[Rfam]
RNA: Glycine riboswitch aptamer
RNA sequence: GCACCUCUGGAAAGAUCCCCGAGCCGUCGUAUGCCGCGGGGGCACCGAAGGAGAAAAGCGCCUAGCGCGCCCAAGCUCUCAGGUACCAACGACAGAGCGGGGAGG
Numbered sequence: 001g002c003a004c005c006u007c008u009g010g011a012a013a014g015a016u017c018c019c020c021g022a023g024c025c026g027u028c029g030u031a032u033g034c035c036g037c038g039g040g041g042g043c044a045c046c047g048a049a050g051g052a053g054a055a056a057a058g059c060g061c062c063u064a065g066c067g068c069g070c071c072c073a074a075g076c077u078c079u080c081a082g083g084u085a086c087c088a089a090c091g092a093c094a095g096a097g098c099g100g101g102g103a104g105g
Stems, first nucleotide, its partner, number of pairs: 002100001005097005016042006044084003047080002051078003058070004